[Rfam]
RNA sequence: CUUCUGGGAUGCAUUUUGUGCAGUUAUGGCAUGUGAUGGACUCAUCACUGGGCAAAGUGUGUCUCAAAAU
Numbered sequence: 001c002u003u004c005u006g007g008g009a010u011g012c013a014u015u016u017u018g019u020g021c022a023g024u025u026a027u028g029g030c031a032u033g034u035g036a037u038g039g040a041c042u043c044a045u046c047a048c049u050g051g052g053c054a055a056a057g058u059g060u061g062u063c064u065c066a067a068a069a070u
Stems, first nucleotide, its partner, number of pairs: 005066010017054003021050004
Record summary: The record is a 70-nucleotide RNA from Scaptodrosophila lebanonensis, which matches "mir-3 microRNA precursor family" in Rfam. Gene Ontology terms of the family: miRNA-mediated post-transcriptional gene silencing and RISC complex. The family has 28 seed sequences and 52 matches in Rfam 15.1. A reference for the family is Aravin et al. (2003), "The small RNA profile during Drosophila melanogaster development", Dev Cell. The match comes from Rfam's covariance-model search (71 bits).